[Rfam]
RNA: Clostridiales-1 RNA
Organism: Catenibacillus scindens
RNA sequence: UGAUACCAGGGUCAAAUAGACAUGCGUUUCAUACUUGUAUGAAAAAGCAUGUCUGCUUGACCCGUAAAAACAUCGAAAAGGCGCCAUUUUUCCCAGAAAAAGGAGCGGAUUUGAGGUGUUUUAGGAUUUCGGGAGCAUGAAAUGCGGAGAAAUCCGUGGUAUCA
Numbered sequence: 001u002g003a004u005a006c007c008a009g010g011g012u013c014a015a016a017u018a019g020a021c022a023u024g025c026g027u028u029u030c031a032u033a034c035u036u037g038u039a040u041g042a043a044a045a046a047g048c049a050u051g052u053c054u055g056c057u058u059g060a061c062c063c064g065u066a067a068a069a070a071c072a073u074c075g076a077a078a079a080g081g082c083g084c085c086a087u088u089u090u091u092c093c094c095a096g097a098a099a100a101a102g103g104a105g106c107g108g109a110u111u112u113g114a115g116g117u118g119u120u121u122u123a124g125g126a127u128u129u130c131g132g133g134a135g136c137a138u139g140a141a142a143u144g145c146g147g148a149g150a151a152a153u154c155c156g157u158g159g160u161a162u163c164a
Base pairs, nucleotide, nucleotide: 001164002163003162004161005160006159007158010062011061012060013059017055018054019053020052021051022050023049024048025047027045028044029042030041031040032039033038067122068121069120070119071118072117073116074115077112078111079110083106084105085103087101088100089099090098091097092096124155125154126153127152128151129150130149135145136144137143138142
Dot-bracket structure: (((((((..((((...(((((((((.(((((((....))))).)).)))))))))...))))....((((((((..(((...(((.((((((...)))))).).))...)))..)))))))).(((((((....((((...))))...)))))))..)))))))